RNA sequence: UCCAAUACCUUAACAAUGGCUCUGACCUUCCUGAACUAUUUUGUAAGUGCUAUUUGUUGGGGUCUUUUGU
Numbered sequence: 001u002c003c004a005a006u007a008c009c010u011u012a013a014c015a016a017u018g019g020c021u022c023u024g025a026c027c028u029u030c031c032u033g034a035a036c037u038a039u040u041u042u043g044u045a046a047g048u049g050c051u052a053u054u055u056g057u058u059g060g061g062g063u064c065u066u067u068u069g070u
Base pairs, nucleotide, nucleotide: 004066005065007063008062009061010060011059013057014056015055016054018051019050020049022047023046025044026043

Source information: The family of this 70-nucleotide RNA sequence from Silurus meridionalis is "miR-430 microRNA precursor family". Lineage of the source: Eukaryota > Actinopteri > Ostariophysi > Siluroidei > Silurus. The family has 32 seed sequences and 24,817 matches in Rfam 15.1. The match comes from Rfam's covariance-model search (52 bits). On this family, see Giraldez et al., Science 2005: "MicroRNAs regulate brain morphogenesis in zebrafish". The family is grouped with related families in Rfam's "mir-290 clan".